[Rfam]
RNA sequence: AUGGAAGUGAUGAUCAUAUUCCUAGCUGAUCGACUAAGAUUAUUAUUGUGUUUUGUUUAAAUCUCUUUCUCAACAAAAGAGUUUUUCCAAGCCAGUAUUUUGAUCCAU
Number, nucleotide and partner (000 for none) at each position: 001a108002u107003g106004g105005a104006a000007g000008u000009g000010a000011u000012g000013a000014u000015c000016a000017u000018a000019u000020u000021c000022c000023u000024a000025g000026c000027u000028g000029a000030u000031c000032g000033a000034c000035u000036a000037a000038g000039a000040u000041u000042a000043u000044u000045a000046u000047u000048g000049u000050g000051u000052u000053u000054u000055g000056u000057u000058u000059a000060a000061a000062u000063c000064u000065c000066u000067u000068u000069c000070u000071c000072a000073a000074c000075a000076a000077a000078a000079g000080a000081g000082u000083u000084u000085u000086u000087c000088c000089a000090a000091g000092c000093c000094a000095g000096u000097a000098u000099u000100u000101u000102g000103a000104u005105c004106c003107a002108u001
This 108-nucleotide RNA from Papaver nudicaule belongs to the Rfam family "Small nucleolar RNA Z103". Pairs were carried over by alignment from the consensus structure, which was predicted with PFOLD. The literature on the family includes a 2003 paper in Nucleic Acids Res by Chen et al., "The high diversity of snoRNAs in plants: identification and comparative study of 120 snoRNA genes from Oryza sativa". Rfam classes the family as a C/D-box small nucleolar RNA.